[Rfam]
A member of the RNA family "mir-241 microRNA precursor family", 66 nucleotides long. The family has 4 seed sequences and 9 matches in Rfam 15.1. It scores 69 bits against the family's covariance model. Gene Ontology terms of the family: RISC complex and miRNA-mediated post-transcriptional gene silencing. The family's consensus secondary structure was predicted with RNAalifold.
RNA sequence: AAAGUUGAGGUAGGUGCGAGAAAUGACGGGAAUCUCGUUCAUUUUCUCUUAGCUGCCUCGGCUGUG
Number, nucleotide and partner (000 for none) at each position: 001a000002a000003a000004g000005u000006u000007g059008a058009g057010g056011u055012a054013g053014g000015u051016g050017c000018g048019a047020g046021a045022a043023a042024u041025g040026a039027c000028g000029g000030g000031a000032a000033u000034c000035u000036c000037g000038u000039u026040c025041a024042u023043u022044u000045u021046c020047u019048c018049u000050u016051a015052g000053c013054u012055g011056c010057c009058u008059c007060g000061g000062c000063u000064g000065u000066g000